[Rfam]
RNA sequence: GUGCAAUAGAGGGUGUUCUUAGUUCCCUAUAUUUAUUUCCAUUCUUCACUUUGUCAGCUGUAAUUUUUCUUGCAGUUGAUUUUCAUGAAUGGUACAGUA
Dot-bracket structure: ......................................(((((.........((((((((............)))))))).......))))).......
Numbered sequence: 001g002u003g004c005a006a007u008a009g010a011g012g013g014u015g016u017u018c019u020u021a022g023u024u025c026c027c028u029a030u031a032u033u034u035a036u037u038u039c040c041a042u043u044c045u046u047c048a049c050u051u052u053g054u055c056a057g058c059u060g061u062a063a064u065u066u067u068u069c070u071u072g073c074a075g076u077u078g079a080u081u082u083u084c085a086u087g088a089a090u091g092g093u094a095c096a097g098u099a
Stems, first nucleotide, its partner, number of pairs: 039092005053080008